[Rfam]
RNA sequence: UUUUAAUUUGAGUUUUAGGAUUGAUUUGAUGAAAGUUAAUGGCUAAUAUUAUUAGCUAAUUAUAAAUUUUCAGCAAAUCAACUCUAAAACACGAAUUAAAC
Number, nucleotide and partner (000 for none) at each position: 001u000002u100003u099004u098005a097006a096007u095008u094009u093010g092011a000012g090013u089014u088015u087016u086017a085018g084019g083020a000021u081022u080023g079024a078025u077026u076027u075028g074029a000030u072031g071032a070033a069034a068035g067036u066037u065038a000039a000040u058041g057042g056043c055044u054045a053046a052047u051048a000049u000050u000051a047052u046053u045054a044055g043056c042057u041058a040059a000060u000061u000062a000063u000064a000065a037066a036067u035068u034069u033070u032071c031072a030073g000074c028075a027076a026077a025078u024079c023080a022081a021082c000083u019084c018085u017086a016087a015088a014089a013090c012091a000092c010093g009094a008095a007096u006097u005098a004099a003100a002101c000